[Rfam]
Shown here is a 56-nucleotide sequence from Elingamita johnsonii, a member of the family "Plastid-ccsA-ndhD-1 3UTR RNA". Plastid-ccsA-ndhD-1 is a non-coding RNA (ncRNA) recognised in plastids. It was found in the three prime untranslated region (3UTR) of ccsA and ndhD genes, its 3UTR location suggests a role in transcript maturation. By type it is a cis-regulatory element. The literature on the family includes a 2023 paper in Plant Commun by Richter et al., "Retrograde signaling in plants: A critical review focusing on the GUN pathway and beyond". The base pairs follow the family's consensus structure, which was predicted with LocARNA. NCBI's taxonomy places the organism under Eukaryota, Streptophyta, Magnoliopsida, eudicotyledons, Elingamita.
RNA sequence: AAGUCGGUGAGAACCAUAUGAAUCACUACACUACUCGAUUCAUAUGGUUCUCACAA
Numbered sequence: 001a002a003g004u005c006g007g008u009g010a011g012a013a014c015c016a017u018a019u020g021a022a023u024c025a026c027u028a029c030a031c032u033a034c035u036c037g038a039u040u041c042a043u044a045u046g047g048u049u050c051u052c053a054c055a056a
Base pairs, nucleotide, nucleotide: 007054008053009052010051011050012049013048014047015046016045017044018043019042020041021040022039023038024037